[Rfam]
Nucleotides: 117
Base pairs, nucleotide, nucleotide: 006105007104008103009102010101011066012065013064014063016060017052018051019050020049072097073096074095078091079090080089081088
Number, partner (000 for none) and nucleotide at each position: 001000g002000c003000g004000g005000c006105g007104g008103a009102c010101a011066c012065g013064g014063g015000g016060u017052g018051c019050g020049c021000a022000c023000c024000c025000c026000g027000a028000c029000g030000c031000c032000g033000c034000g035000c036000g037000g038000g039000c040000g041000u042000c043000g044000c045000a046000g047000u048000c049020g050019c051018g052017c053000u054000g055000a056000g057000a058000u059000c060016a061000c062000a063014c064013c065012c066011g067000u068000g069000g070000a071000a072097c073096c074095u075000g076000a077000u078091c079090u080089a081088g082000c083000u084000c085000g086000u087000a088081c089080u090079a091078g092000c093000g094000a095074a096073g097072g098000g099000a100000a101010u102009g103008u104007c105006c106000g107000c108000a109000u110000g111000a112000c113000g114000c115000c116000c117000c
Annotation:
TPP riboswitch aptamer (THI element): a 117-nucleotide RNA sequence from Actinomyces bowdenii.